[Rfam]
RNA: ZMP/ZTP riboswitch aptamer (pfl RNA motif)
Organism: Qiania dongpingensis
RNA sequence: GAAGGUUUCGAUUGCUGACGGGCAAACGUGAGAAACACGGUGCAGUCGAAGCCCAUAUGAGCCGACCGUCUGGGCAGCAUUU
Numbered sequence: 001g002a003a004g005g006u007u008u009c010g011a012u013u014g015c016u017g018a019c020g021g022g023c024a025a026a027c028g029u030g031a032g033a034a035a036c037a038c039g040g041u042g043c044a045g046u047c048g049a050a051g052c053c054c055a056u057a058u059g060a061g062c063c064g065a066c067c068g069u070c071u072g073g074g075c076a077g078c079a080u081u082u
Stems, first nucleotide, its partner, number of pairs: 004053009015042001017070005030036001061075003